Small nucleolar RNA snoR2/U65: a 144-nucleotide RNA sequence from Cucumis sativus.
Gene Ontology terms of the family: RNA processing and nucleolus.
A reference for the family is Shaw et al. (1998), "Localization and processing from a polycistronic precursor of novel snoRNAs in maize", J Cell Sci.
A search with the family's covariance model found it, with a score of 119 bits.
The base pairs follow the family's consensus structure, which was predicted with WAR.
Rfam classes the family as an H/ACA-box small nucleolar RNA.
The source organism's lineage runs through Eukaryota, Viridiplantae, Magnoliopsida, Cucurbitaceae and Cucumis.
RNA sequence: GGUUCGAUGCCACGUCGGCGAUAGCUAAGGGCGGUGACCGUCGAUGCUCUGAUUGAACCAAGAACAACCCUUUUUCACAUCUUGAUAGGAAUCUGUUUAUCUUUUUUCAGUAGAUUUACAGAGCCGUUUUGUGUGAUUACAUUU
Numbered sequence: 001g002g003u004u005c006g007a008u009g010c011c012a013c014g015u016c017g018g019c020g021a022u023a024g025c026u027a028a029g030g031g032c033g034g035u036g037a038c039c040g041u042c043g044a045u046g047c048u049c050u051g052a053u054u055g056a057a058c059c060a061a062g063a064a065c066a067a068c069c070c071u072u073u074u075u076c077a078c079a080u081c082u083u084g085a086u087a088g089g090a091a092u093c094u095g096u097u098u099a100u101c102u103u104u105u106u107u108c109a110g111u112a113g114a115u116u117u118a119c120a121g122a123g124c125c126g127u128u129u130u131g132u133g134u135g136a137u138u139a140c141a142u143u144u
Base pairs, nucleotide, nucleotide: 002058003057004056005055006054007053008052009050013046014045015044016043017042018041020039022037024032025031026030075136076135077134078133079132088125089124093121094120095119099115100114101113